[Rfam]
RNA sequence: AUAGAAAAAGGGAAUGAAGUUCUCCCUGGCAUUAGCCAAACCGCUUGUUAAGCUGAUGACUUCUGCAACUUA
Numbered sequence: 001a002u003a004g005a006a007a008a009a010g011g012g013a014a015u016g017a018a019g020u021u022c023u024c025c026c027u028g029g030c031a032u033u034a035g036c037c038a039a040a041c042c043g044c045u046u047g048u049u050a051a052g053c054u055g056a057u058g059a060c061u062u063c064u065g066c067a068a069c070u071u072a
Base pairs, nucleotide, nucleotide: 010026011025012024013023016063017062018061019060020059021058043053044052045051

The record is a 72-nucleotide RNA sequence from Eremococcus coleocola, which matches "Fluoride riboswitch aptamer (crcB RNA motif)" in Rfam. A search with the family's covariance model found it, with a score of 52 bits. Its family is annotated with response to fluoride and positive regulation of gene expression in the Gene Ontology.